The record is a 113-nucleotide RNA sequence, which matches "Manganese Mn2+ riboswitch aptamer (yybP-ykoY)" in Rfam.
The base pairs follow the family's consensus structure.
[Rfam]
RNA sequence: CCACCCAGGGGAGUAGUCUCUCUGAAAUGAUUGUUCAGAGGUUGUCGUCAACAUAAUUGAGCCUCAAUGCUCAUGGCGGCAACAGCACAAGUUCAGAUAAUGGCAGUGUGCUU
Numbered sequence: 001c002c003a004c005c006c007a008g009g010g011g012a013g014u015a016g017u018c019u020c021u022c023u024g025a026a027a028u029g030a031u032u033g034u035u036c037a038g039a040g041g042u043u044g045u046c047g048u049c050a051a052c053a054u055a056a057u058u059g060a061g062c063c064u065c066a067a068u069g070c071u072c073a074u075g076g077c078g079g080c081a082a083c084a085g086c087a088c089a090a091g092u093u094c095a096g097a098u099a100a101u102g103g104c105a106g107u108g109u110g111c112u113u
Base pairs, nucleotide, nucleotide: 021039022038023037041083042082043081044080045079046078047077048076049075050074058073059072060071061070062069084112085111086110087109088108089107